[Rfam]
RNA sequence: UGCACUCACAAAUGUAAGGCGCUCUGGAUAAGAUCAUCUGCUAAAUGACUUAAA
Numbered sequence: 001u002g003c004a005c006u007c008a009c010a011a012a013u014g015u016a017a018g019g020c021g022c023u024c025u026g027g028a029u030a031a032g033a034u035c036a037u038c039u040g041c042u043a044a045a046u047g048a049c050u051u052a053a054a
Stems, first nucleotide, its partner, number of pairs: 013043001014041003021035001023033003
The record is a 54-nucleotide RNA from Salmo salar, which matches "UnaL2 LINE 3' element" in Rfam. NCBI's taxonomy places the organism under Eukaryota, Metazoa, Chordata, Salmonidae, Salmo. Rfam 15.1 lists 493,311 matches to the family in 99 species. The family's RNA type in Rfam is cis-regulatory element. Pairs were carried over by alignment from the consensus structure, which is taken from published work.